A member of the RNA family "FMN riboswitch aptamer (RFN element)" from Limosilactobacillus ingluviei, 120 nucleotides long.
The organism belongs to Limosilactobacillus, within Bacteria.
RNA sequence: GUUUGUCUUCAAGGCAGGGUGCAAUUCCCGACCGGCGGUAUAGCCCGCAACCCGUAUUUACGGUGGAACCUGGCGCAAUUCCAGGUGCCGACAGUAUAGUCUGGUAGAUAGAAGAUUGCC
Numbered sequence: 001g002u003u004u005g006u007c008u009u010c011a012a013g014g015c016a017g018g019g020u021g022c023a024a025u026u027c028c029c030g031a032c033c034g035g036c037g038g039u040a041u042a043g044c045c046c047g048c049a050a051c052c053c054g055u056a057u058u059u060a061c062g063g064u065g066g067a068a069c070c071u072g073g074c075g076c077a078a079u080u081c082c083a084g085g086u087g088c089c090g091a092c093a094g095u096a097u098a099g100u101c102u103g104g105u106a107g108a109u110a111g112a113a114g115a116u117u118g119c120c
Stems, first nucleotide, its partner, number of pairs: 003118001005116006017029003031100002033090002035048004043088002052063002068086002071083003092103003
Record summary: Pairs were carried over by alignment from the consensus structure, which is taken from published work. From the family's description: The RFN element is a highly conserved domain that is found frequently in the 5'-untranslated regions of prokaryotic mRNAs that encode for flavin mononucleotide (FMN) biosynthesis and transport proteins. A search with the family's covariance model found it, with a score of 92 bits.